[Rfam]
Source information
Rfam assigns this 106-nucleotide sequence from Prevotella sp. CAG:732 to the family "engA RNA".

RNA sequence: UCCCUGAAUGGAAAAGAGGGAGGAACUCUCGCUGGUUGGCGAGGGCCGGGGUAUGGUCAGCUUCGGCAAAUUAUUAACUUGGAUGCAGAGACCACAUCCUAGAAAC
Numbered sequence: 001u002c003c004c005u006g007a008a009u010g011g012a013a014a015a016g017a018g019g020g021a022g023g024a025a026c027u028c029u030c031g032c033u034g035g036u037u038g039g040c041g042a043g044g045g046c047c048g049g050g051g052u053a054u055g056g057u058c059a060g061c062u063u064c065g066g067c068a069a070a071u072u073a074u075u076a077a078c079u080u081g082g083a084u085g086c087a088g089a090g091a092c093c094a095c096a097u098c099c100u101a102g103a104a105a106c
Stems, first nucleotide, its partner, number of pairs: 001021005027044006045067008081099005
About this RNA:
The base pairs follow the family's consensus structure, which is taken from published work.